[Rfam]
RNA sequence: AUGCCUUAAACUAAUGAGUAAGGAAAAUAAUGAUCCUGGGUAGUUCCAGGUUCCCACAAUACAAUUUGUGAAAUAUUUUUCAAUGGGUAAAGGCUGCUCUUGAGGUGACCCACCUACUUAGUGGGAUGCCCAAGCUAAGCGACCUACCCU
Numbered sequence: 001a002u003g004c005c006u007u008a009a010a011c012u013a014a015u016g017a018g019u020a021a022g023g024a025a026a027a028u029a030a031u032g033a034u035c036c037u038g039g040g041u042a043g044u045u046c047c048a049g050g051u052u053c054c055c056a057c058a059a060u061a062c063a064a065u066u067u068g069u070g071a072a073a074u075a076u077u078u079u080u081c082a083a084u085g086g087g088u089a090a091a092g093g094c095u096g097c098u099c100u101u102g103a104g105g106u107g108a109c110c111c112a113c114c115u116a117c118u119u120a121g122u123g124g125g126a127u128g129c130c131c132a133a134g135c136u137a138a139g140c141g142a143c144c145u146a147c148c149c150u
Stems, first nucleotide, its partner, number of pairs: 004023005032053002035050005055070005085149004091145003095141003100134002104130004109125005

Background: U12 minor spliceosomal RNA: a 150-nucleotide sequence from Apostichopus japonicus. It scores 116 bits against the family's covariance model. The base pairs follow the family's consensus structure. Rfam links the family to the GO terms pre-mRNA branch point binding, mRNA branch site recognition and U12 snRNP.